[Rfam]
RNA sequence: UCUUAACACUUGUCACAUCGCACAUACAUCGGCACAUAUAUUGGGGUGCUCCGUUAAGGAGUCAAUCUAUGGGAUGUAUGGAGGAUUAAC
Numbered sequence: 001u002c003u004u005a006a007c008a009c010u011u012g013u014c015a016c017a018u019c020g021c022a023c024a025u026a027c028a029u030c031g032g033c034a035c036a037u038a039u040a041u042u043g044g045g046g047u048g049c050u051c052c053g054u055u056a057a058g059g060a061g062u063c064a065a066u067c068u069a070u071g072g073g074a075u076g077u078a079u080g081g082a083g084g085a086u087u088a089a090c
Base pairs, nucleotide, nucleotide: 023080024079025078026077027076028075029074030073035071036070037069038068040066041065042064043063048062049061050060051059052058
Rfam assigns this 90-nucleotide sequence from Beggiatoa alba to the family "t44 RNA". The base pairs follow the family's consensus structure, which was predicted with LocARNA. It scores 74 bits against the family's covariance model. From the family's description: This family consists of a number of bacterial RNA genes of between 135 and 170 bases in length. The t44 gene has been identified in several species of enteric bacteria but homologs have also been identified in Pseudomonas and Coxiella species. Taxonomically the source falls in Beggiatoa alba (Bacteria, Thiotrichales, Thiotrichaceae, Beggiatoa).